[Rfam]
RNA sequence: AAUAGUUUUAUGACUCAUCAGUAUUUUCAUAUUGAAUUUUAGCAUUUUCAUCCAGAAAAAAAUCAAAUCCAAAUUAAAAUCUUGAAAUUCAAGAUAAGAAUAUUGAUGUAACAUAAAACUAUU
Numbered sequence: 001a002a003u004a005g006u007u008u009u010a011u012g013a014c015u016c017a018u019c020a021g022u023a024u025u026u027u028c029a030u031a032u033u034g035a036a037u038u039u040u041a042g043c044a045u046u047u048u049c050a051u052c053c054a055g056a057a058a059a060a061a062a063u064c065a066a067a068u069c070c071a072a073a074u075u076a077a078a079a080u081c082u083u084g085a086a087a088u089u090c091a092a093g094a095u096a097a098g099a100a101u102a103u104u105g106a107u108g109u110a111a112c113a114u115a116a117a118a119c120u121a122u123u
Stems, first nucleotide, its partner, number of pairs: 001123012016108012029095002032092008041083002045079004
Dot-bracket structure: ((((((((((((...((((((((((((.((.((((((((.((..((((...........................))))..)).)))))))).)).))))))))))))...))))))))))))
A member of the RNA family "MIR7504 microRNA precursor family" from Gossypium australe, 123 nucleotides long. It scores 85 bits against the family's covariance model. The family has 8 seed sequences and 7,343 matches in Rfam 15.1. Lineage of the source: Eukaryota > Streptophytina > Magnoliopsida > Malvoideae > Gossypium.